[Rfam]
RNA: MIR6288 microRNA precursor family
Organism: Prunus persica
RNA sequence: CAAAAACUAGCCACUUGUCAUUUUCUAAUUAGUUCUUAGUGUGUUAAAAUUUUUUAAGAACCGAUUAGAAAAUGACAAGUGGCUAGUUUUGA
Numbered sequence: 001c002a003a004a005a006a007c008u009a010g011c012c013a014c015u016u017g018u019c020a021u022u023u024u025c026u027a028a029u030u031a032g033u034u035c036u037u038a039g040u041g042u043g044u045u046a047a048a049a050u051u052u053u054u055u056a057a058g059a060a061c062c063g064a065u066u067a068g069a070a071a072a073u074g075a076c077a078a079g080u081g082g083c084u085a086g087u088u089u090u091g092a
Base pairs, nucleotide, nucleotide: 003090004089005088006087007086008085009084010083011082012081013080014079015078016077017076018075019074020073021072022071023070024069025068026067027066028065029064030063032061033060034059035058036057037056038055039054